[Rfam]
RNA sequence: UAUAUUUGCACCCGCUAUUCAUAUGAGUUGAGUGGCUACAUAAAAAUUAUUUAAUCAAAUAUUGGCAUG
Numbered sequence: 001u002a003u004a005u006u007u008g009c010a011c012c013c014g015c016u017a018u019u020c021a022u023a024u025g026a027g028u029u030g031a032g033u034g035g036c037u038a039c040a041u042a043a044a045a046a047u048u049a050u051u052u053a054a055u056c057a058a059a060u061a062u063u064g065g066c067a068u069g
Base pairs, nucleotide, nucleotide: 014036015035016034017033018032019031020030021029